[Rfam]
RNA sequence: CUGGGUUAUGGAGACAUGUAUCCUCAGACUUGGUCAGGCAUGUUGGUGGGCGCACUUUGUGCUCUAGCGGGUGUGUUAACCAUCGCCAUGCCUGUGCCUGUCAUCGUCAAUAAC
Numbered sequence: 001c002u003g004g005g006u007u008a009u010g011g012a013g014a015c016a017u018g019u020a021u022c023c024u025c026a027g028a029c030u031u032g033g034u035c036a037g038g039c040a041u042g043u044u045g046g047u048g049g050g051c052g053c054a055c056u057u058u059g060u061g062c063u064c065u066a067g068c069g070g071g072u073g074u075g076u077u078a079a080c081c082a083u084c085g086c087c088a089u090g091c092c093u094g095u096g097c098c099u100g101u102c103a104u105c106g107u108c109a110a111u112a113a114c
Stems, first nucleotide, its partner, number of pairs: 002113001004111001008107004013102004018097004037077004049063003

Source information:
Shown here is a 114-nucleotide sequence from Cyprinus carpio, a member of the family "Potassium channel RNA editing signal". From the family's description: This family represents a group of sequences related to the human potassium channel Kv1.1 hairpin element which directs the efficient modification of an adenosine to inosine by an adenosine deaminase acting on RNA (ADAR). The ADAR modification causes an isoleucine/valine recoding event which lies in the ion-conducting pore of the potassium channel. Taxonomically the source falls in Cyprinus (Eukaryota, Actinopteri, Neopterygii, Cyprinoidei). Gene Ontology term of the family: adenosine to inosine editing.